About this RNA: This 118-nucleotide RNA sequence from Falsiroseomonas stagni belongs to the Rfam family "ALIL pseudoknot". The family's consensus secondary structure is taken from published work. A search with the family's covariance model found it, with a score of 104 bits. The family's RNA type in Rfam is cis-regulatory element. NCBI's taxonomy places the organism under Bacteria, Pseudomonadota, Roseomonadaceae, Falsiroseomonas, Falsiroseomonas stagni. Rfam links the family to the GO term positive regulation of translational frameshifting.

RNA sequence: CGCUUACUUUGCUCAGGCGGAGCUCGACCGCCGGUUCAAGCCAUGUUCGCCCAUCAUCGAUGAUCAUCGCGAGGCGCACGGGGUCGAGCCGAUCUGCAAGGUCCUACCGAUCGCCCCG
Numbered sequence: 001c002g003c004u005u006a007c008u009u010u011g012c013u014c015a016g017g018c019g020g021a022g023c024u025c026g027a028c029c030g031c032c033g034g035u036u037c038a039a040g041c042c043a044u045g046u047u048c049g050c051c052c053a054u055c056a057u058c059g060a061u062g063a064u065c066a067u068c069g070c071g072a073g074g075c076g077c078a079c080g081g082g083g084u085c086g087a088g089c090c091g092a093u094c095u096g097c098a099a100g101g102u103c104c105u106a107c108c109g110a111u112c113g114c115c116c117c118g
Stems, first nucleotide, its partner, number of pairs: 016032005079118005090113002093110002096107001098105001